[Rfam]
RNA sequence: GGUCAUGAGCGCCAGCGUCAAGCCCCGGCUCGCUGGCCGGCAACCCUCCGCCACGGUGGGGUGCUCCGGGUGAGGACCAGGCACCGGUGAACGACCCGGUGCAAGCGUGGCCU
Numbered sequence: 001g002g003u004c005a006u007g008a009g010c011g012c013c014a015g016c017g018u019c020a021a022g023c024c025c026c027g028g029c030u031c032g033c034u035g036g037c038c039g040g041c042a043a044c045c046c047u048c049c050g051c052c053a054c055g056g057u058g059g060g061g062u063g064c065u066c067c068g069g070g071u072g073a074g075g076a077c078c079a080g081g082c083a084c085c086g087g088u089g090a091a092c093g094a095c096c097c098g099g100u101g102c103a104a105g106c107g108u109g110g111c112c113u
Base pairs, nucleotide, nucleotide: 001078002077003076004075009038011037012036013035014034015033016032021030022029039065040064041063044061045060046059048056049055081102082101083100084099085098086097087096
RNA: SAM (S-adenosyl methionine) riboswitch aptamer